[Rfam]
RNA sequence: UUCAUAAUAAUCUUACAUUUGGGGCUUACAUACCGGGUGCCUAGUCACCAUUUUGCCUCGGGAAGGUCUGAGUCAGACUAUUACGCUCCAGCCGGGCGUCUGUGUAUAAGCAGAGUAGGGGGACCAGAAAUAUGCAAACAAAAUCUUUAGCCUGGGAUCAUUUUUAAAUGGGAGGUUGCGAUGUUUUGUUUGUUGAAAUCUCCUACGGUUAGCUAUUUGAGUGCAAUAUGUAAGCUGGUUUUACCAGAACUCAAUUCAGACUAGUCUAUUGUGAA
Numbered sequence: 001u002u003c004a005u006a007a008u009a010a011u012c013u014u015a016c017a018u019u020u021g022g023g024g025c026u027u028a029c030a031u032a033c034c035g036g037g038u039g040c041c042u043a044g045u046c047a048c049c050a051u052u053u054u055g056c057c058u059c060g061g062g063a064a065g066g067u068c069u070g071a072g073u074c075a076g077a078c079u080a081u082u083a084c085g086c087u088c089c090a091g092c093c094g095g096g097c098g099u100c101u102g103u104g105u106a107u108a109a110g111c112a113g114a115g116u117a118g119g120g121g122g123a124c125c126a127g128a129a130a131u132a133u134g135c136a137a138a139c140a141a142a143a144u145c146u147u148u149a150g151c152c153u154g155g156g157a158u159c160a161u162u163u164u165u166a167a168a169u170g171g172g173a174g175g176u177u178g179c180g181a182u183g184u185u186u187u188g189u190u191u192g193u194u195g196a197a198a199u200c201u202c203c204u205a206c207g208g209u210u211a212g213c214u215a216u217u218u219g220a221g222u223g224c225a226a227u228a229u230g231u232a233a234g235c236u237g238g239u240u241u242u243a244c245c246a247g248a249a250c251u252c253a254a255u256u257c258a259g260a261c262u263a264g265u266c267u268a269u270u271g272u273g274a275a
Stems, first nucleotide, its partner, number of pairs: 001275004007269003012234007021059005036049004040044001068259005076210004084098005099114005115206007135192008235247005
Shown here is a 275-nucleotide RNA from Photinus pyralis, a member of the family "Nuclear RNase P". The source organism's lineage runs through Eukaryota, Opisthokonta, Pancrustacea, Endopterygota and Photinus. Its family is annotated with ribonuclease P complex, tRNA processing and ribonuclease P activity in the Gene Ontology. Clan: RNaseP clan.